[Rfam]
Nucleotides: 063
Stems, first nucleotide, its partner, number of pairs: 001063005014050003018046006029039003
Number, partner (000 for none) and nucleotide at each position: 001063g002062c003061c004060a005059g006000a007000u008000g009000a010000u011000g012000a013000c014050g015049a016048u017000c018046u019045g020044g021043g022042u023041g024000g025000a026000a027000a028000c029039c030038c031037a032000u033000c034000c035000u036000g037031u038030g039029g040000g041023c042022a043021c044020c045019c046018a047000c048016a049015u050014c051000c052000g053000a054000g055000c056000c057000c058000g059005c060004u061003g062002g063001c
The record is a 63-nucleotide RNA sequence from Cebus imitator, which matches "Selenocysteine insertion sequence 1" in Rfam. Rfam classes the family as a cis-regulatory element.